[Rfam]
mir-932 microRNA precursor family: an 86-nucleotide sequence from Ooceraea biroi. Its family is annotated with miRNA-mediated post-transcriptional gene silencing and RISC complex in the Gene Ontology. A search with the family's covariance model found it, with a score of 69 bits.
RNA sequence: UGCAGCCUCAAUUCCGUAGUGCAUUGCAGUCGAUUAUUCGAUUCAUGCGAGAGCACCUGCAAGCACCGCGGGAGUGAGGUGGCCUC
Number, nucleotide and partner (000 for none) at each position: 001u000002g000003c000004a000005g000006c079007c078008u077009c076010a075011a000012u000013u072014c071015c070016g069017u068018a000019g000020u065021g064022c063023a000024u062025u061026g060027c059028a058029g000030u000031c000032g000033a000034u000035u000036a000037u000038u000039c000040g000041a000042u000043u000044c000045a000046u000047g000048c000049g000050a000051g000052a000053g000054c000055a000056c000057c000058u028059g027060c026061a025062a024063g022064c021065a020066c000067c000068g017069c016070g015071g014072g013073a000074g000075u010076g009077a008078g007079g006080u000081g000082g000083c000084c000085u000086c000